The family of this 133-nucleotide sequence from Hucho hucho is "Small nucleolar RNA SNORA17". The literature on the family includes a 1997 paper in J Mol Biol by Ofengand and Bakin, "Mapping to nucleotide resolution of pseudouridine residues in large subunit ribosomal RNAs from representative eukaryotes, prokaryotes, archaebacteria, mitochondria and chloroplasts". Rfam 15.1 lists 5,784 matches to the family in 673 species. Rfam's curators write: snoRNA ACA 17 belongs to the H/ACA family of snoRNAs and is predicted to guide pseudouridylation of the 28S rRNA at positions U4659 and U4598. It shares the same host gene together with ACA43. NB This family has a high threshold value to exclude a large number of closely related sequences that do not appear to have conserved H and ACA boxes, and may be pseudogenes. By type it is an H/ACA-box small nucleolar RNA. The family's consensus secondary structure was predicted with RNAalifold.
Nucleotides: 133
Stems, first nucleotide, its partner, number of pairs: 003059009013049003019046004024041002027038001029036001069128003074123001076121001082116002087109002090105004
Number, partner (000 for none) and nucleotide at each position: 001000c002000c003059u004058g005057c006056c007055c008054c009053u010052u011051g012000a013049g014048g015047c016000g017000u018000u019046g020045c021044a022043g023000u024041c025040u026000g027038a028000c029036u030000g031000g032000a033000a034000g035000u036029g037000u038027u039000g040025a041024g042000c043022c044021u045020g046019u047015g048014u049013c050000a051011u052010g053009a054008g055007g056006g057005g058004c059003a060000u061000a062000g063000a064000a065000u066000g067000a068000c069128g070127u071126g072000g073000c074123u075000a076121g077000g078000u079000c080000c081000a082116c083115g084000c085000a086000g087109a088108g089000g090105a091104c092103c093102c094000g095000g096000a097000a098000c099000a100000g101000u102093g103092g104091g105090u106000a107000c108088u109087u110000g111000g112000g113000a114000g115083u116082g117000a118000u119000c120000a121076u122000a123074a124000a125000a126071c127070a128069c129000u130000a131000a132000a133000g